[Rfam]
RNA sequence: CGCGGGAGCCCGGCGGACCGGGCUGAGAGGGCGGAGCUUGCCGCCGACCGUAAACACCUGAUCCGGGUCAUGCCGGCGAAGGGAG
Numbered sequence: 001c002g003c004g005g006g007a008g009c010c011c012g013g014c015g016g017a018c019c020g021g022g023c024u025g026a027g028a029g030g031g032c033g034g035a036g037c038u039u040g041c042c043g044c045c046g047a048c049c050g051u052a053a054a055c056a057c058c059u060g061a062u063c064c065g066g067g068u069c070a071u072g073c074c075g076g077c078g079a080a081g082g083g084a085g
Base pairs, nucleotide, nucleotide: 001085002051003050004049005048008023009022010021011020012019030045031044032043033042034041057082058081059080063076064075065074066073